[Rfam]
RNA sequence: AAUAGGCCUCGGUAGGUGAGGUUACUACAAGGAUACGGGUCGCUGCCGUAAAAGAAUGGAAACAUUUUUAACUGGUUAGCAGGUUUUGCCGAACAAAGAAGGUUUAACUUAAUGCGAUUUCAUUGCCUUGCAGAGCCAAAACUCAAACGAGAAAGUGUUAUU
Numbered sequence: 001a002a003u004a005g006g007c008c009u010c011g012g013u014a015g016g017u018g019a020g021g022u023u024a025c026u027a028c029a030a031g032g033a034u035a036c037g038g039g040u041c042g043c044u045g046c047c048g049u050a051a052a053a054g055a056a057u058g059g060a061a062a063c064a065u066u067u068u069u070a071a072c073u074g075g076u077u078a079g080c081a082g083g084u085u086u087u088g089c090c091g092a093a094c095a096a097a098g099a100a101g102g103u104u105u106a107a108c109u110u111a112a113u114g115c116g117a118u119u120u121c122a123u124u125g126c127c128u129u130g131c132a133g134a135g136c137c138a139a140a141a142c143u144c145a146a147a148c149g150a151g152a153a154a155g156u157g158u159u160a161u162u
Stems, first nucleotide, its partner, number of pairs: 005158001008155002011148001013100001015143003020137003025133002028130005039118005046074001048072002055066004082109004088103003
RNA: M-box riboswitch aptamer (ykoK leader)